Rfam assigns this 58-nucleotide sequence from Loigolactobacillus bifermentans to the family "Transposase-1 RNA".
Taxonomically the source falls in Loigolactobacillus bifermentans (Bacteria, Bacillati, Lactobacillales, Loigolactobacillus).
The family's RNA type in Rfam is small RNA.
The family's consensus secondary structure is taken from published work.
A search with the family's covariance model found it, with a score of 57 bits.
[Rfam]
RNA sequence: UUAAGAGUCGUUCAAUGCCAUUACCUGGACUUUCCAGAUAUGGGAAUAGCGAUGUUGA
Numbered sequence: 001u002u003a004a005g006a007g008u009c010g011u012u013c014a015a016u017g018c019c020a021u022u023a024c025c026u027g028g029a030c031u032u033u034c035c036a037g038a039u040a041u042g043g044g045a046a047u048a049g050c051g052a053u054g055u056u057g058a
Stems, first nucleotide, its partner, number of pairs: 007053006018043004025037003